This 444-nucleotide RNA sequence from Granulicella tundricola belongs to the Rfam family "Bacterial RNase P class A". Lineage of the source: Bacteria > Terriglobia > Terriglobales > Acidobacteriaceae > Granulicella tundricola. Rfam classes the family as a ribozyme.
RNA sequence: GCAGGCGGCCGGGCGAUCGCUGCCGUUUUCGUUCGAAAGAGCGUUUAACGGGGGAGGAAAGUCCGAACUCCGCAGGGCAGUGUGCCGGAUAACGUCCGGGACGGAUGCUUCAAGGCAUCCGGACGGCCAGUGCAACAGAGAGCAAACCGCCUUGGGCGCAAGCUUGAGGUAAGGGUGAAAGGGUGCGGUAAGAGCGCACCGGGCGACGAGUAAUCGGCGCCGCAUGGUAAACCCCACACGGAGCAAGACCAAAUAGGCAGGGAUGCGCCCGCCCCUCUCCAGGCGAGCGCAAGCGUAUCGGCCCGAUACGCCCAGGCGGAGAGAUCCAACGCGCAAGCCGAGGAAGCCGAAACCUGCGGGUAGGUUGCUAAAGCGCCACGGUAACGUGUCGCGUAGAGGAAUGAUCGCCUAGAACAAAAUUCGGCUUACGGGCCGCCUGCAAAC
Numbered sequence: 001g002c003a004g005g006c007g008g009c010c011g012g013g014c015g016a017u018c019g020c021u022g023c024c025g026u027u028u029u030c031g032u033u034c035g036a037a038a039g040a041g042c043g044u045u046u047a048a049c050g051g052g053g054g055a056g057g058a059a060a061g062u063c064c065g066a067a068c069u070c071c072g073c074a075g076g077g078c079a080g081u082g083u084g085c086c087g088g089a090u091a092a093c094g095u096c097c098g099g100g101a102c103g104g105a106u107g108c109u110u111c112a113a114g115g116c117a118u119c120c121g122g123a124c125g126g127c128c129a130g131u132g133c134a135a136c137a138g139a140g141a142g143c144a145a146a147c148c149g150c151c152u153u154g155g156g157c158g159c160a161a162g163c164u165u166g167a168g169g170u171a172a173g174g175g176u177g178a179a180a181g182g183g184u185g186c187g188g189u190a191a192g193a194g195c196g197c198a199c200c201g202g203g204c205g206a207c208g209a210g211u212a213a214u215c216g217g218c219g220c221c222g223c224a225u226g227g228u229a230a231a232c233c234c235c236a237c238a239c240g241g242a243g244c245a246a247g248a249c250c251a252a253a254u255a256g257g258c259a260g261g262g263a264u265g266c267g268c269c270c271g272c273c274c275c276u277c278u279c280c281a282g283g284c285g286a287g288c289g290c291a292a293g294c295g296u297a298u299c300g301g302c303c304c305g306a307u308a309c310g311c312c313c314a315g316g317c318g319g320a321g322a323g324a325u326c327c328a329a330c331g332c333g334c335a336a337g338c339c340g341a342g343g344a345a346g347c348c349g350a351a352a353c354c355u356g357c358g359g360g361u362a363g364g365u366u367g368c369u370a371a372a373g374c375g376c377c378a379c380g381g382u383a384a385c386g387u388g389u390c391g392c393g394u395a396g397a398g399g400a401a402u403g404a405u406c407g408c409c410u411a412g413a414a415c416a417a418a419a420u421u422c423g424g425c426u427u428a429c430g431g432g433c434c435g436c437c438u439g440c441a442a443a444c
Stems, first nucleotide, its partner, number of pairs: 001440010011429001012409007020054002023051005059427003063424005068243004080239005085099005100124001102121008125234002130232002132228002147174002149170009182200006201223001202221004207216003247366004257357005298350005373392003377388004